[Rfam]
A member of the RNA family "Mammalian CPEB3 ribozyme" from Eptatretus burgeri, 75 nucleotides long. The match comes from Rfam's covariance-model search (41 bits). From the family's description: The mammalian CPEB3 ribozyme is a self cleaving RNA located in the second intron of the CPEB3 gene which belongs to a family of genes regulating messenger RNA polyadenylation.
RNA sequence: UCUAUAUAAUCAGGGGCCACAGAAGGAGUGUUCUUGUCACAGUUUCUGUCAGAAGUUUCAUCUGCAAAUCUUGAU
Numbered sequence: 001u002c003u004a005u006a007u008a009a010u011c012a013g014g015g016g017c018c019a020c021a022g023a024a025g026g027a028g029u030g031u032u033c034u035u036g037u038c039a040c041a042g043u044u045u046c047u048g049u050c051a052g053a054a055g056u057u058u059c060a061u062c063u064g065c066a067a068a069u070c071u072u073g074a075u
Stems, first nucleotide, its partner, number of pairs: 013046005021075001024072004028040003050064004055059001